[Rfam]
The family of this 144-nucleotide RNA from Lactococcus allomyrinae is "PyrR binding site". The family's consensus secondary structure is taken from published work. A reference for the family is Bonner et al. (2001), "Molecular recognition of pyr mRNA by the Bacillus subtilis attenuation regulatory protein PyrR", Nucleic Acids Res. A search with the family's covariance model found it, with a score of 74 bits.
RNA sequence: AAAACUUUUAAUCUAGUCCAGAGAGGCUAGCAAGGUUGUGAACGAGAAAAAUAUCAUUCUGUAAGUUGCUGACAGCUUUCUGUCAGUAAAUUAUUGAAGCAUUUUGGUACACAUCUGCUAGAUUUCUGGCAGAUGUUUUUUUAU
Numbered sequence: 001a002a003a004a005c006u007u008u009u010a011a012u013c014u015a016g017u018c019c020a021g022a023g024a025g026g027c028u029a030g031c032a033a034g035g036u037u038g039u040g041a042a043c044g045a046g047a048a049a050a051a052u053a054u055c056a057u058u059c060u061g062u063a064a065g066u067u068g069c070u071g072a073c074a075g076c077u078u079u080c081u082g083u084c085a086g087u088a089a090a091u092u093a094u095u096g097a098a099g100c101a102u103u104u105u106g107g108u109a110c111a112c113a114u115c116u117g118c119u120a121g122a123u124u125u126c127u128g129g130c131a132g133a134u135g136u137u138u139u140u141u142u143a144u
Stems, first nucleotide, its partner, number of pairs: 003037006013030006062093003066089010109138001111136011